[Rfam]
RNA: mir-101 microRNA precursor family
RNA sequence: UGUCCUUUUUCGGUUAUCAUGGUACCGAUGCUGUAGAUCUGAAAGGUACAGUACUGUGAUAGCUGAAGAAUGGUG
Numbered sequence: 001u002g003u004c005c006u007u008u009u010u011c012g013g014u015u016a017u018c019a020u021g022g023u024a025c026c027g028a029u030g031c032u033g034u035a036g037a038u039c040u041g042a043a044a045g046g047u048a049c050a051g052u053a054c055u056g057u058g059a060u061a062g063c064u065g066a067a068g069a070a071u072g073g074u075g
Stems, first nucleotide, its partner, number of pairs: 011065015027049001029048004